A member of the RNA family "Group II catalytic intron D1-D4-4" from Acetivibrio clariflavus, 143 nucleotides long.
Its family is annotated with Group II intron splicing in the Gene Ontology.
It scores 87 bits against the family's covariance model.
A reference for the family is Bonen and Vogel (2001), "The ins and outs of group II introns", Trends Genet.
Group II introns are found in rRNA, tRNA and mRNA of organelles in fungi, plants and protists, and also in mRNA in bacteria.
The source organism's lineage runs through Bacteria, Bacillati, Acetivibrionales, Acetivibrionaceae and Acetivibrio clariflavus.
RNA sequence: UUGCCGGUGAAAGUCUGGCACGGGUAAUUUCCAAGAAGCCCGUUAGCUAAUCCCGGUGCGUCACGGUAAUGUGAGGUGCUGAGCGGGAGGAUAAAGUACCUGCCUAAACAGCAGGGCGAGCGAAAAUGCAGACCGUAACAUCA
Number, nucleotide and partner (000 for none) at each position: 001u000002u000003g000004c000005c000006g000007g000008u000009g000010a000011a000012a000013g000014u000015c000016u000017g000018g000019c000020a043021c042022g041023g040024g039025u000026a000027a000028u000029u000030u000031c000032c000033a000034a000035g000036a000037a000038g000039c024040c023041c022042g021043u020044u000045a000046g000047c000048u000049a000050a000051u088052c087053c086054c085055g080056g079057u078058g077059c076060g000061u000062c000063a000064c071065g070066g000067u000068a000069a000070u065071g064072u000073g000074a000075g000076g059077u058078g057079c056080u055081g000082a000083g000084c000085g054086g053087g052088a051089g000090g000091a000092u000093a000094a000095a000096g117097u000098a000099c115100c114101u113102g112103c111104c000105u000106a000107a000108a000109c000110a000111g103112c102113a101114g100115g099116g000117c096118g000119a000120g136121c135122g134123a000124a000125a000126a000127u000128g000129c000130a000131g000132a000133c000134c122135g121136u120137a000138a000139c000140a000141u000142c000143a000